Shown here is a 90-nucleotide RNA sequence from uncultured bacterium eBACmed18B02, a member of the family "SAR11_0636 sRNA".

[Rfam]
RNA sequence: GGUUGUAUUUUGAGUCUGAAACUGAAUCAAAAGUGAAUCAAAACGUGAACAUCCAAACUACAUAUUGGGGACUUGUGGAUAACGUUAACC
Number, nucleotide and partner (000 for none) at each position: 001g090002g089003u088004u087005g086006u000007a000008u000009u056010u055011u000012g053013a052014g000015u048016c047017u000018g000019a000020a000021a000022c000023u040024g039025a038026a000027u036028c035029a034030a000031a000032a000033g000034u029035g028036a027037a000038u025039c024040a023041a000042a000043a000044c000045g000046u000047g016048a015049a000050c000051a000052u013053c012054c000055a010056a009057a000058c078059u077060a076061c075062a074063u000064a000065u000066u000067g000068g000069g000070g000071a000072c000073u000074u062075g061076u060077g059078g058079a000080u000081a000082a000083c000084g000085u000086u005087a004088a003089c002090c001
By type it is a small RNA. For this family Rfam cites "Identification of candidate structured RNAs in the marine organism 'Candidatus Pelagibacter ubique'" (Meyer et al., BMC Genomics, 2009).